[Rfam]
RNA sequence: AUGAAACCGGCAGAAGAAAUGCCGACAGAGCCAUUCAAGGAGGAGACAGAAGAACACCACUUUGGCAAAUUUCCCCAUCGGUUUGUUUAGCUUUGGCCAUGAGAAGCGAGAGAAGACAAAAACUUUUCUUUUUGAUCUUAUGGUAACAGGCAAAACGGCAAGUCAUAUAUCGGCAUCAGGCUCGUGUUCGAGUUCC
Numbered sequence: 001a002u003g004a005a006a007c008c009g010g011c012a013g014a015a016g017a018a019a020u021g022c023c024g025a026c027a028g029a030g031c032c033a034u035u036c037a038a039g040g041a042g043g044a045g046a047c048a049g050a051a052g053a054a055c056a057c058c059a060c061u062u063u064g065g066c067a068a069a070u071u072u073c074c075c076c077a078u079c080g081g082u083u084u085g086u087u088u089a090g091c092u093u094u095g096g097c098c099a100u101g102a103g104a105a106g107c108g109a110g111a112g113a114a115g116a117c118a119a120a121a122a123c124u125u126u127u128c129u130u131u132u133u134g135a136u137c138u139u140a141u142g143g144u145a146a147c148a149g150g151c152a153a154a155a156c157g158g159c160a161a162g163u164c165a166u167a168u169a170u171c172g173g174c175a176u177c178a179g180g181c182u183c184g185u186g187u188u189c190g191a192g193u194u195c196c
Stems, first nucleotide, its partner, number of pairs: 024066001082154005100148002179194005

This 196-nucleotide sequence from Capsella rubella belongs to the Rfam family "Early nodulin 40". By type it is a non-coding RNA gene. On this family, see Gultyaev and Roussis, Nucleic Acids Res 2007: "Identification of conserved secondary structures and expansion segments in enod40 RNAs reveals new enod40 homologues in plants". Taxonomically the source falls in Capsella (Eukaryota, Viridiplantae, Tracheophyta, eudicotyledons).